Record summary
A member of the RNA family "L31-Actinobacteria ribosomal protein leader" from Streptosporangium roseum, 86 nucleotides long. Lineage of the source: Bacteria > Bacillati > Actinomycetes > Streptosporangiales > Streptosporangium. Pairs were carried over by alignment from the consensus structure, which is taken from published work.

RNA sequence: GCGGUUCCGGUUCCCGCCCGCGCGCACCUCAGUGUGCACACCGCGCGCAAGCCUGACAGGCGAGAGACAGUGGCGACCCGGCGACC
Number, nucleotide and partner (000 for none) at each position: 001g000002c000003g086004g085005u084006u000007c081008c080009g079010g078011u000012u000013c000014c000015c075016g074017c073018c072019c000020g000021c000022g068023c000024g000025c000026a000027c000028c000029u000030c000031a000032g000033u000034g000035u000036g000037c000038a000039c000040a000041c000042c000043g000044c000045g000046c000047g000048c000049a000050a000051g000052c000053c000054u000055g000056a000057c000058a000059g000060g000061c000062g000063a000064g000065a000066g000067a000068c022069a000070g000071u000072g018073g017074c016075g015076a000077c000078c010079c009080g008081g007082c000083g000084a005085c004086c003